[Rfam]
RNA sequence: AGGCAGCGCCUUUGCGAAUUAAAAAACAAUGGCAAGGAGGUGUUGUUCUACUGGGAAAUUGAUUCUUUGGCUUUUCAGAUUUGCUGAGAAAUUCAUAUUUCUCUGAAGCUGGUCUAGUAAGCUCAAGUACAUU
Numbered sequence: 001a002g003g004c005a006g007c008g009c010c011u012u013u014g015c016g017a018a019u020u021a022a023a024a025a026a027c028a029a030u031g032g033c034a035a036g037g038a039g040g041u042g043u044u045g046u047u048c049u050a051c052u053g054g055g056a057a058a059u060u061g062a063u064u065c066u067u068u069g070g071c072u073u074u075u076c077a078g079a080u081u082u083g084c085u086g087a088g089a090a091a092u093u094c095a096u097a098u099u100u101c102u103c104u105g106a107a108g109c110u111g112g113u114c115u116a117g118u119a120a121g122c123u124c125a126a127g128u129a130c131a132u133u
Stems, first nucleotide, its partner, number of pairs: 002044004007040001009037002012035004017030001065127003070122003077115005083109003088101003
This 133-nucleotide RNA sequence from Papaver somniferum belongs to the Rfam family "Small nucleolar RNA snoR77". The family has 5 seed sequences and 649 matches in Rfam 15.1. NCBI's taxonomy places the organism under Eukaryota, Euphyllophyta, Magnoliopsida, Papaveroideae, Papaver. By type it is an H/ACA-box small nucleolar RNA. Rfam links the family to the GO terms nucleolus and RNA processing.